A member of the RNA family "Mitochondrion-encoded tmRNA" from Phytophthora nicotianae, 73 nucleotides long. A search with the family's covariance model found it, with a score of 90 bits. The source organism's lineage runs through Eukaryota, Sar, Oomycota, Peronosporaceae and Phytophthora. The family's RNA type in Rfam is non-coding RNA gene. The literature on the family includes a 2013 paper in RNA Biol by Hafez et al., "A second eukaryotic group with mitochondrion-encoded tmRNA: in silico identification and experimental confirmation".
RNA sequence: UAAAUGGACCCAAAGGCAGUAUUUGGUAUUUCCAUUAAUAUUAAUAAGGGAAUAAUAAAAGAAUUGACAUUUA
Numbered sequence: 001u002a003a004a005u006g007g008a009c010c011c012a013a014a015g016g017c018a019g020u021a022u023u024u025g026g027u028a029u030u031u032c033c034a035u036u037a038a039u040a041u042u043a044a045u046a047a048g049g050g051a052a053u054a055a056u057a058a059a060a061g062a063a064u065u066g067a068c069a070u071u072u073a
Stems, first nucleotide, its partner, number of pairs: 001073006010026005027054007